Source information:
The family of this 411-nucleotide RNA sequence from Lake Baikal phage Baikal-20-5m-C28 is "Betaproteobacteria transfer-messenger RNA".
RNA sequence: UAUCUAUUUUUAUCUUGAAAUAGAUAAUUAAAGAAUUGUUGUAAUUCCUUUCUAGUAAAGGCGUAUUGGACGGGGGUUCGAAUCCCCCCACCUCCACCAAAAGGAUUUUUAUGAAAGCUUGGGUUGAAUAUUUCCCUCCAUUAAAUUUAUUUAAUUAUAAUUUAUUUUGGAAGUGGAACUAUGAAAUACUAAGCGAAGAGAAUCUUUCUGACGGGGGUGUAUUGGUUUCGACAGUGCGAGAUAGCAAAGAAGGCAACAGGGCAAUGUGAAAGCCCUUAGGAUUGGGGAUUUCCCGGUCGUAGAAACAAAAAGUGUAAAUGCAAACGACAAUGUUUGGGCUUUAGCAGCGUAAGCUGAUAAACCUGAGGUUUAGCUGACUGUCCUUAUUACCCAAUCAGUUAGUAUUUUUUA
Numbered sequence: 001u002a003u004c005u006a007u008u009u010u011u012a013u014c015u016u017g018a019a020a021u022a023g024a025u026a027a028u029u030a031a032a033g034a035a036u037u038g039u040u041g042u043a044a045u046u047c048c049u050u051u052c053u054a055g056u057a058a059a060g061g062c063g064u065a066u067u068g069g070a071c072g073g074g075g076g077u078u079c080g081a082a083u084c085c086c087c088c089c090a091c092c093u094c095c096a097c098c099a100a101a102a103g104g105a106u107u108u109u110u111a112u113g114a115a116a117g118c119u120u121g122g123g124u125u126g127a128a129u130a131u132u133u134c135c136c137u138c139c140a141u142u143a144a145a146u147u148u149a150u151u152u153a154a155u156u157a158u159a160a161u162u163u164a165u166u167u168u169g170g171a172a173g174u175g176g177a178a179c180u181a182u183g184a185a186a187u188a189c190u191a192a193g194c195g196a197a198g199a200g201a202a203u204c205u206u207u208c209u210g211a212c213g214g215g216g217g218u219g220u221a222u223u224g225g226u227u228u229c230g231a232c233a234g235u236g237c238g239a240g241a242u243a244g245c246a247a248a249g250a251a252g253g254c255a256a257c258a259g260g261g262c263a264a265u266g267u268g269a270a271a272g273c274c275c276u277u278a279g280g281a282u283u284g285g286g287g288a289u290u291u292c293c294c295g296g297u298c299g300u301a302g303a304a305a306c307a308a309a310a311a312g313u314g315u316a317a318a319u320g321c322a323a324a325c326g327a328c329a330a331u332g333u334u335u336g337g338g339c340u341u342u343a344g345c346a347g348c349g350u351a352a353g354c355u356g357a358u359a360a361a362c363c364u365g366a367g368g369u370u371u372a373g374c375u376g377a378c379u380g381u382c383c384u385u386a387u388u389a390c391c392c393a394a395u396c397a398g399u400u401a402g403u404a405u406u407u408u409u410u411a
Stems, first nucleotide, its partner, number of pairs: 037258005047253002050250002053246001055245002062238007072088005089219007260298003366384003371401006
Pairs were carried over by alignment from the consensus structure, which is taken from published work.
The source organism's lineage runs through Viruses, Heunggongvirae, Uroviricota, Pantevenvirales and Kyanoviridae.
Rfam's curators write: Bacterial tmRNA, also known as 10Sa RNA or SsrA, is named for its dual tRNA and mRNA-like properties. Its role is to liberate the mRNA from a stalled ribosome. To accomplish this part of the tmRNA is used as a reading frame that ends in a translation stop signal. The broken mRNA is replaced in the ribosome by the tmRNA and translation of the tmRNA leads to addition of a proteolysis tag to the incomplete protein enabling recognition by a protease.
A reference for the family is Williams and Bartel (1996), "Phylogenetic analysis of tmRNA secondary structure", RNA.
By type it is a non-coding RNA gene.